Record summary
This 173-nucleotide sequence from Paraburkholderia caballeronis belongs to the Rfam family "Burkholderia RNA 14". Lineage of the source: Bacteria > Pseudomonadota > Betaproteobacteria > Burkholderiaceae > Paraburkholderia.
[Rfam]
RNA sequence: GUGGGUGUCGUCACCGUCCAGCCGACUCCGGUGCCGGUCGUCUCCGAACUGCCGGGCCGCACCAAUGCGUUCCUCGUCGCGCAGGUGCGCGCGCGGGUGGAUGGCAUCGUGCUGCGCCGCGAAUUCAUCGAAGGCACGAUGGUGAAGGCGGGGCAACGGCUGUACAAGAUCGA
Numbered sequence: 001g002u003g004g005g006u007g008u009c010g011u012c013a014c015c016g017u018c019c020a021g022c023c024g025a026c027u028c029c030g031g032u033g034c035c036g037g038u039c040g041u042c043u044c045c046g047a048a049c050u051g052c053c054g055g056g057c058c059g060c061a062c063c064a065a066u067g068c069g070u071u072c073c074u075c076g077u078c079g080c081g082c083a084g085g086u087g088c089g090c091g092c093g094c095g096g097g098u099g100g101a102u103g104g105c106a107u108c109g110u111g112c113u114g115c116g117c118c119g120c121g122a123a124u125u126c127a128u129c130g131a132a133g134g135c136a137c138g139a140u141g142g143u144g145a146a147g148g149c150g151g152g153g154c155a156a157c158g159g160c161u162g163u164a165c166a167a168g169a170u171c172g173a
Base pairs, nucleotide, nucleotide: 004053005052006051007050008047009046010045013041014040016038018037019036021034022033023031056149057148058147061143062142063141067137069135070134072133074131075130078093079092080091081090082089094121095120097118100115102114103113104112105111106110157172158171160168161167

Pairs were carried over by alignment from the consensus structure, which was predicted with RNAfold.
By type it is a small RNA.
Co-purified with Hfq, expression confirmed by Northern blot. Putative functional homologue of PA-SraF. Overlaps coding sequence.